The record is an 88-nucleotide RNA sequence from Blastococcus sp. TF02A-26, which matches "tRNA" in Rfam. By type it is a transfer RNA. The base pairs follow the family's consensus structure, which is taken from published work.
RNA sequence: GGAGGGCUCGCAUAGCGGCCUAGUGCGGCGGUCUUGAAAACCGCUAAGAGGUAACCCCUCUUCGUGGGUUCGAAUCCCACGCCCUCCG
Numbered sequence: 001g002g003a004g005g006g007c008u009c010g011c012a013u014a015g016c017g018g019c020c021u022a023g024u025g026c027g028g029c030g031g032u033c034u035u036g037a038a039a040a041c042c043g044c045u046a047a048g049a050g051g052u053a054a055c056c057c058c059u060c061u062u063c064g065u066g067g068g069u070u071c072g073a074a075u076c077c078c079a080c081g082c083c084c085u086c087c088g
Stems, first nucleotide, its partner, number of pairs: 001087007010026004028044005064080005